[Rfam]
RNA sequence: GCGUGGAACACGGGAGACGCUGGCGAAAGUCAGGGCCGAAGGAGCAACCGCCCCGGUAAACUCUCAGGCACAAGGGACCGGUUCCGCAG
Numbered sequence: 001g002c003g004u005g006g007a008a009c010a011c012g013g014g015a016g017a018c019g020c021u022g023g024c025g026a027a028a029g030u031c032a033g034g035g036c037c038g039a040a041g042g043a044g045c046a047a048c049c050g051c052c053c054c055g056g057u058a059a060a061c062u063c064u065c066a067g068g069c070a071c072a073a074g075g076g077a078c079c080g081g082u083u084c085c086g087c088a089g
Stems, first nucleotide, its partner, number of pairs: 005085005011080003020033004035069003038065002042063003048056002
Dot-bracket structure: ....(((((.(((......((((......)))).(((((..(((...((.....))....))))).)))........))))))))....